[Rfam]
Nucleotides: 059
Stems, first nucleotide, its partner, number of pairs: 002055012015042001020037006
Number, partner (000 for none) and nucleotide at each position: 001000a002055a003054a004053a005052g006051g007050a008049g009048c010047a011046a012045u013044a014000g015042c016000c017000c018000a019000u020037u021036u022035c023034u024033u025032g026000u027000u028000c029000u030000a031000u032025c033024a034023a035022g036021a037020g038000g039000g040000u041000c042015g043000g044013u045012a046011u047010u048009g049008c050007u051006c052005c053004u054003u055002u056000u057000u058000u059000u
Source information: The family of this 59-nucleotide sequence from Deutzianthus tonkinensis is "Plastid-psbA-3 3UTR RNA". Plastid psbA-3 is a non-coding RNA (ncRNA) present in plastids. It was identified in inverted repeat sequences in the 3 prime untranslate region (3UTR) of photosystem II quinone-binding protein (psbA). Clan: Plastid-psbA 3UTR RNA clan. It is one of the family's seed sequences. It is annotated as a cis-regulatory element.